[Rfam]
Annotation: The record is a 193-nucleotide RNA from Photobacterium gaetbulicola, which matches "GcvB RNA" in Rfam. Rfam's curators write: The gcvB gene encodes a small untranslated RNA involved in expression of the dipeptide and oligopeptide transport systems in Escherichia coli. A reference for the family is Urbanowski et al. (2000), "The gcvB gene encodes a small untranslated RNA involved in expression of the dipeptide and oligopeptide transport systems in Escherichia coli", Mol Microbiol. Rfam classes the family as a non-coding RNA gene.

RNA sequence: CCCCGCAACGGUGAGCAAGGCCAAGUUUUUCGCCCUCAGGCAUUUGGCCGACCGCACAGUUGCGAUGUUGUGUUUGCAUAUUGUCCGGGUUAUGCCGGAUAGGUAGUCAAUCUACCAAUUUUACUUCCUGUAUUUUUGACCUGUCUGUCAAAAUUAAUUCUUGGCACUGCGCCCCAACGCAGUGCUUUUUUUU
Number, nucleotide and partner (000 for none) at each position: 001c000002c000003c000004c000005g000006c000007a000008a000009c054010g053011g052012u051013g000014a000015g049016c000017a000018a000019g000020g048021c047022c046023a045024a044025g043026u000027u042028u000029u000030u000031c000032g041033c040034c039035c000036u000037c000038a000039g034040g033041c032042a027043u025044u024045u023046g022047g021048c020049c015050g000051a012052c011053c010054g009055c000056a000057c000058a000059g000060u000061u000062g000063c000064g000065a000066u000067g000068u000069u000070g000071u000072g000073u000074u000075u000076g000077c000078a000079u000080a000081u000082u000083g100084u099085c098086c097087g096088g095089g000090u000091u000092a000093u000094g000095c088096c087097g086098g085099a084100u083101a000102g116103g115104u114105a113106g112107u000108c000109a000110a000111u000112c106113u105114a104115c103116c102117a000118a000119u000120u000121u000122u000123a000124c000125u000126u000127c000128c000129u000130g000131u000132a000133u000134u000135u000136u000137u000138g000139a000140c000141c000142u000143g000144u000145c000146u000147g000148u000149c000150a000151a000152a000153a000154u000155u000156a000157a000158u000159u000160c000161u000162u000163g186164g185165c184166a183167c182168u181169g180170c179171g000172c000173c000174c000175c000176a000177a000178c000179g170180c169181a168182g167183u166184g165185c164186u163187u000188u000189u000190u000191u000192u000193u000